[Rfam]
RNA sequence: AGGUGAAUAUGAUGAUAACAGGAUGAGUGAUCAUCAAACAUUACAUAACGUGUUUGAUAUGAUCAAAUUCUCCAUCGCUACGUUCUUUCUGAUUCACCA
Numbered sequence: 001a002g003g004u005g006a007a008u009a010u011g012a013u014g015a016u017a018a019c020a021g022g023a024u025g026a027g028u029g030a031u032c033a034u035c036a037a038a039c040a041u042u043a044c045a046u047a048a049c050g051u052g053u054u055u056g057a058u059a060u061g062a063u064c065a066a067a068u069u070c071u072c073c074a075u076c077g078c079u080a081c082g083u084u085c086u087u088u089c090u091g092a093u094u095c096a097c098c099a
Stems, first nucleotide, its partner, number of pairs: 004096004
RNA: Small nucleolar RNA R32/R81/Z41